[Rfam]
Shown here is a 72-nucleotide RNA sequence, a member of the family "Small nucleolar RNA SNORD82". About the family: snoRNA U82 or Z25 is found in both humans and mice. On this family, see Galardi et al., Mol Cell Biol 2002: "Purified box C/D snoRNPs are able to reproduce site-specific 2'-O-methylation of target RNA in vitro". It is annotated as a C/D-box small nucleolar RNA. The base pairs follow the family's consensus structure, which was predicted with PFOLD.

RNA sequence: AGCACAAGUGAUGACUAACAAAGGGACUUAAUACUGAAACAUCUGGGAUUGAAAUGCAGUAUGCUGAUGUGC
Numbered sequence: 001a002g003c004a005c006a007a008g009u010g011a012u013g014a015c016u017a018a019c020a021a022a023g024g025g026a027c028u029u030a031a032u033a034c035u036g037a038a039a040c041a042u043c044u045g046g047g048a049u050u051g052a053a054a055u056g057c058a059g060u061a062u063g064c065u066g067a068u069g070u071g072c
Base pairs, nucleotide, nucleotide: 002072003071004070005069006068